Annotation
The record is a 181-nucleotide sequence from Sphaeramia orbicularis, which matches "Small nucleolar RNA SNORA23" in Rfam. NCBI's taxonomy places the organism under Eukaryota, Deuterostomia, Euteleosteomorpha, Eurypterygia, Sphaeramia. A search with the family's covariance model found it, with a score of 86 bits. Rfam links the family to the GO terms RNA processing and nucleolus. Rfam classes the family as an H/ACA-box small nucleolar RNA. The family's consensus secondary structure was predicted with RNAalifold. About the family: The members of this family belong to the H/ACA class of snoRNAs which are thought to guide the sites of modification of uridines to pseudouridines. The literature on the family includes a 2001 paper in EMBO J by Huttenhofer et al., "RNomics: an experimental approach that identifies 201 candidates for novel, small, non-messenger RNAs in mouse".
RNA sequence: GGUGGAUGGUGUGCGUGGUGUCGGUCCAUGUUAUGUAUUGUUGCCAGACUACGUUUUGUAGCCUGUGCAGCGGUGCUCACUCCUCACUUGCAGCCAUAGAGCAGAAGGAGAUCAUAGUACUGGCCCUUGAUGUCUUUCUUGACUUCUCACCAUUGGUCAGCCUCCAAACUCUCCAACAUAA
Numbered sequence: 001g002g003u004g005g006a007u008g009g010u011g012u013g014c015g016u017g018g019u020g021u022c023g024g025u026c027c028a029u030g031u032u033a034u035g036u037a038u039u040g041u042u043g044c045c046a047g048a049c050u051a052c053g054u055u056u057u058g059u060a061g062c063c064u065g066u067g068c069a070g071c072g073g074u075g076c077u078c079a080c081u082c083c084u085c086a087c088u089u090g091c092a093g094c095c096a097u098a099g100a101g102c103a104g105a106a107g108g109a110g111a112u113c114a115u116a117g118u119a120c121u122g123g124c125c126c127u128u129g130a131u132g133u134c135u136u137u138c139u140u141g142a143c144u145u146c147u148c149a150c151c152a153u154u155g156g157u158c159a160g161c162c163u164c165c166a167a168a169c170u171c172u173c174c175a176a177c178a179u180a181a
Base pairs, nucleotide, nucleotide: 013091014090015089030080031079035077036075037074038073039072040071041070043068044067045065046064047063050060051059052058107174108173109172110171111170120160121159122158123157124156125155129146130145132143133142134141